[Rfam]
RNA sequence: ACUGUAAAAGGGCAAACCGCGCGGAAACGGCGGGACGCAAAGCUACUGGACUAACGCGUGAAGCUAUGUUCGCAGGGCUGCCGCC
Number, nucleotide and partner (000 for none) at each position: 001a000002c000003u000004g000005u000006a000007a000008a000009a000010g000011g000012g038013c037014a000015a000016a000017c033018c032019g031020c030021g000022c029023g028024g000025a000026a000027a000028c023029g022030g020031c019032g018033g017034g000035a000036c000037g013038c012039a000040a000041a079042g078043c077044u076045a000046c075047u074048g073049g070050a069051c068052u000053a000054a000055c000056g064057c063058g000059u000060g000061a000062a000063g057064c056065u000066a000067u000068g051069u050070u049071c000072g000073c048074a047075g046076g044077g043078c042079u041080g000081c000082c000083g000084c000085c000
Annotation:
The record is an 85-nucleotide sequence from Azoarcus sp. KH32C, which matches "c-di-GMP-I riboswitch aptamer" in Rfam. NCBI's taxonomy places the organism under Bacteria, Pseudomonadati, Betaproteobacteria, Rhodocyclales, Azoarcus.